[Rfam]
RNA: Small nucleolar RNA SNORA72
RNA sequence: AGGCGAAUAUUCUCGCUGUCCUGAUCUGUUUGUGACCAGGGCAGGCUAGACAUUCGCUACAUCAAAACUCUGCAUUGUGUCCUCCAGGACUAGAUUGUUGCUCUAGUACUGGCUUUGUAAAUGCUUGUGACAGGU
Numbered sequence: 001a002g003g004c005g006a007a008u009a010u011u012c013u014c015g016c017u018g019u020c021c022u023g024a025u026c027u028g029u030u031u032g033u034g035a036c037c038a039g040g041g042c043a044g045g046c047u048a049g050a051c052a053u054u055c056g057c058u059a060c061a062u063c064a065a066a067a068c069u070c071u072g073c074a075u076u077g078u079g080u081c082c083u084c085c086a087g088g089a090c091u092a093g094a095u096u097g098u099u100g101c102u103c104u105a106g107u108a109c110u111g112g113c114u115u116u117g118u119a120a121a122u123g124c125u126u127g128u129g130a131c132a133g134g135u
Base pairs, nucleotide, nucleotide: 003057004056005055016044017043018042019041020040021039022038023037025035026034067128068127072124073123084112085111086110087109089107090106091105092104093103